[Rfam]
RNA sequence: CUCUGGAGAGCGGCGCCCGGCAGUUGCACGGAGCGCCCACCGAUGGGGCAACACGGCACCGCCUGCGGGCCGUGAUAAUCUCUCAGGUACCAAGGACAGGG
Numbered sequence: 001c002u003c004u005g006g007a008g009a010g011c012g013g014c015g016c017c018c019g020g021c022a023g024u025u026g027c028a029c030g031g032a033g034c035g036c037c038c039a040c041c042g043a044u045g046g047g048g049c050a051a052c053a054c055g056g057c058a059c060c061g062c063c064u065g066c067g068g069g070c071c072g073u074g075a076u077a078a079u080c081u082c083u084c085a086g087g088u089a090c091c092a093a094g095g096a097c098a099g100g101g
Stems, first nucleotide, its partner, number of pairs: 001101005012037004039088003042084002046082003
Dot-bracket structure: (((((......((((..................)))).(((((..(((...............................))))).)))........)))))
The family of this 101-nucleotide RNA sequence from Propionivibrio dicarboxylicus is "Glycine riboswitch aptamer". Its family is annotated with glycine biosynthetic process in the Gene Ontology. The pairing is the family consensus, mapped onto this sequence.